[Rfam]
RNA sequence: ACCGAAAAAGGAAACAACCCGAAAGGGUUGGACGCGAAGCAACUGACCUAAGUCCGGAUUUUAAGGAUACGGUAGCAGGGCUGCCGGAC
Numbered sequence: 001a002c003c004g005a006a007a008a009a010g011g012a013a014a015c016a017a018c019c020c021g022a023a024a025g026g027g028u029u030g031g032a033c034g035c036g037a038a039g040c041a042a043c044u045g046a047c048c049u050a051a052g053u054c055c056g057g058a059u060u061u062u063a064a065g066g067a068u069a070c071g072g073u074a075g076c077a078g079g080g081c082u083g084c085c086g087g088a089c
Base pairs, nucleotide, nucleotide: 003086004085011035015030016029017028018027019026020025033075038082039081040080043078044077045076046073047072048071
Shown here is an 89-nucleotide RNA sequence, a member of the family "c-di-GMP-I-GGC riboswitch aptamer". The family has 40 seed sequences and 1,298 matches in Rfam 15.1. A reference for the family is Weinberg et al. (2017), "Bioinformatic analysis of riboswitch structures uncovers variant classes with altered ligand specificity", Proc Natl Acad Sci U S A. The base pairs follow the family's consensus structure, which is taken from published work.